The record is an 80-nucleotide sequence from Mesocricetus auratus, which matches "mir-92 microRNA precursor family" in Rfam. Rfam links the family to the GO terms miRNA-mediated post-transcriptional gene silencing and RISC complex. A search with the family's covariance model found it, with a score of 81 bits.
RNA sequence: AUUCAUCCAUGGGUGGGGAUUAGUGCCAUUACUUGUGUUAGAUUAAAAGUAUUGCACUUGUCCCGGCCUGUGGAAGAAAA
Numbered sequence: 001a002u003u004c005a006u007c008c009a010u011g012g013g014u015g016g017g018g019a020u021u022a023g024u025g026c027c028a029u030u031a032c033u034u035g036u037g038u039u040a041g042a043u044u045a046a047a048a049g050u051a052u053u054g055c056a057c058u059u060g061u062c063c064c065g066g067c068c069u070g071u072g073g074a075a076g077a078a079a080a
Stems, first nucleotide, its partner, number of pairs: 004076001006074001009071006016064005022058003027054002030051005
From the family's description: This family represents the microRNA precursor mir-92. Human miR-92 has two predicted hairpin precursor sequences: mir-92-1 on chromosome 13 and mir-92-2 on chromosome X. miR-92 has also been cloned from mouse embryonic stem cells. The mature sequence is excised from the 3' arm of the hairpin. Taxonomically the source falls in Mesocricetus (Eukaryota, Teleostomi, Theria, Boreoeutheria). Pairs were carried over by alignment from the consensus structure, which was predicted with PFOLD.